This 138-nucleotide RNA from Labrus bergylta belongs to the Rfam family "Small nucleolar RNA SNORA29". Rfam classes the family as an H/ACA-box small nucleolar RNA. From the family's description: ACA29 is a member of the H/ACA class of snoRNA that guide the sites of modification of uridines to pseudouridines. Taxonomically the source falls in Labrus (Eukaryota, Ctenosquamata, Acanthomorphata, Labriformes). The family has 26 seed sequences and 960 matches in Rfam 15.1.
RNA sequence: CGUCCCGUUAUAGUACCUUCCACUCCCGUCUCGUUGAAUGGAAGGCUAUGCUAAUGGGAUAGAAAAACAUAGUCAUGGUCUGAGGGUGUGGUUAACCUUUUUGUGUGCCCACUAAAUAAAUUGACAAGACAUGUUCGG
Dot-bracket structure: ...((((........((((......................)))).........)))).............((((..............(((..................)))........)))).............